[Rfam]
RNA sequence: CACUUAUCAAGAGAGAUUGAGGGAAAUGGCCCGAUGACAUCUCAGCAGCGGACUCUAUUUAGAGCACUGUGCUAAUUCCAUCAAGCGUUAUGCUUGGCAGAUAAAAU
Number, nucleotide and partner (000 for none) at each position: 001c000002a000003c000004u104005u103006a102007u101008c100009a000010a000011g000012a000013g043014a042015g041016a040017u039018u000019g000020a000021g032022g031023g030024a000025a000026a081027u080028g079029g078030c023031c022032c021033g000034a000035u000036g000037a000038c000039a017040u016041c015042u014043c013044a073045g072046c071047a070048g000049c069050g068051g065052a000053c000054u062055c000056u000057a000058u000059u000060u000061a000062g054063a000064g000065c051066a000067c000068u050069g049070u047071g046072c045073u044074a000075a000076u000077u099078c029079c028080a027081u026082c096083a095084a094085g093086c092087g091088u000089u000090a000091u087092g086093c085094u084095u083096g082097g000098c000099a077100g008101a007102u006103a005104a004105a000106a000107u000

A member of the RNA family "SAM riboswitch aptamer (S box leader)" from Macrococcus sp. DPC7161, 107 nucleotides long. Pairs were carried over by alignment from the consensus structure, which is taken from published work. About the family: The SAM riboswitch is found upstream of a number of genes which code for proteins involved in methionine or cysteine biosynthesis in Gram-positive bacteria.